Background: The record is a 105-nucleotide sequence from Theropithecus gelada, which matches "Mitochondrial DNA control region secondary structure A" in Rfam. The match comes from Rfam's covariance-model search (79 bits). On this family, see Pereira et al., Mol Biol Evol 2008: "Evidence for variable selective pressures at a large secondary structure of the human mitochondrial DNA control region". It is annotated as an antisense RNA.

[Rfam]
RNA sequence: GUAUUCUAUGGGGUGCAAGCUUUAAGUGCAACUUAAGUACUAAUUUAUUUUAUCAGAUCCUUAUGUAAUCUGUGCAUUACUGCUAGCCAACAUGAAUGUUAUAUA
Numbered sequence: 001g002u003a004u005u006c007u008a009u010g011g012g013g014u015g016c017a018a019g020c021u022u023u024a025a026g027u028g029c030a031a032c033u034u035a036a037g038u039a040c041u042a043a044u045u046u047a048u049u050u051u052a053u054c055a056g057a058u059c060c061u062u063a064u065g066u067a068a069u070c071u072g073u074g075c076a077u078u079a080c081u082g083c084u085a086g087c088c089a090a091c092a093u094g095a096a097u098g099u100u101a102u103a104u105a
Base pairs, nucleotide, nucleotide: 005096007094008093009092010091011088012087015083016082017081022036023035024034025033026032027031037058038057040056041055043053063077064076065075066074067073
Pairs were carried over by alignment from the consensus structure, which is taken from published work.